Rfam assigns this 121-nucleotide RNA sequence from Lutispora thermophila to the family "Ribosomal protein L10 leader". Rfam's curators write: This family is a putative r-protein leader autoregulatory structure found in B. subtilis and other low-GC Gram-positive bacteria. It is located in the 5' untranslated regions of mRNAs encoding ribosomal proteins L10 and L12 (rplJ-rplL). A Rho-independent transcription terminator structure that is probably involved in regulation is included at the 3' end. A search with the family's covariance model found it, with a score of 78 bits. The source organism's lineage runs through Bacteria, Bacillati, Bacillota, Clostridia and Lutispora thermophila.

[Rfam]
RNA sequence: CUGAAAUUGAAUAUAGUACCGUAGACAGUAGGUGCGUAAUGCUUAAUUUCCUACCGAGGUUUUGAUCAUAAAUGAAAUUAUGACCUCUCUAUGUCUACGGAGAGGUCUUUUGUAUAAUCAA
Numbered sequence: 001c002u003g004a005a006a007u008u009g010a011a012u013a014u015a016g017u018a019c020c021g022u023a024g025a026c027a028g029u030a031g032g033u034g035c036g037u038a039a040u041g042c043u044u045a046a047u048u049u050c051c052u053a054c055c056g057a058g059g060u061u062u063u064g065a066u067c068a069u070a071a072a073u074g075a076a077a078u079u080a081u082g083a084c085c086u087c088u089c090u091a092u093g094u095c096u097a098c099g100g101a102g103a104g105g106u107c108u109u110u111u112g113u114a115u116a117a118u119c120a121a
Base pairs, nucleotide, nucleotide: 028054029053030052031051032050034042035041036040083106084105085104086103087102088101089100090099092097
Description
For this family Rfam cites "Diverse mechanisms for regulating ribosomal protein synthesis in Escherichia coli" (Zengel and Lindahl, Prog Nucleic Acid Res Mol Biol, 1994).